Shown here is a 60-nucleotide RNA from Oryzias latipes, a member of the family "mir-7552 microRNA precursor family". The base pairs follow the family's consensus structure, which was predicted with RNAalifold.
[Rfam]
RNA sequence: UUACAAUUAAAGGAUAUUUCUCGUGACUAAAAAAGCGGAAAUGUCUCUUAAUUGUUCGGU
Numbered sequence: 001u002u003a004c005a006a007u008u009a010a011a012g013g014a015u016a017u018u019u020c021u022c023g024u025g026a027c028u029a030a031a032a033a034a035g036c037g038g039a040a041a042u043g044u045c046u047c048u049u050a051a052u053u054g055u056u057c058g059g060u
Stems, first nucleotide, its partner, number of pairs: 003055008012046010024033001